Shown here is a 54-nucleotide RNA from Salvelinus namaycush, a member of the family "UnaL2 LINE 3' element".
It is annotated as a cis-regulatory element.
Rfam 15.1 lists 493,311 matches to the family in 99 species.
A reference for the family is Baba et al. (2004), "Solution structure of an RNA stem-loop derived from the 3' conserved region of eel LINE UnaL2", RNA.
The match comes from Rfam's covariance-model search (64 bits).
RNA sequence: AUCACACAUGCCUGUAAGUCGCUUUGGAUAAAAGUGUCUGCUAAAGAGCAUAUA
Dot-bracket structure: ............((((...((((((.....))))))..))).)...........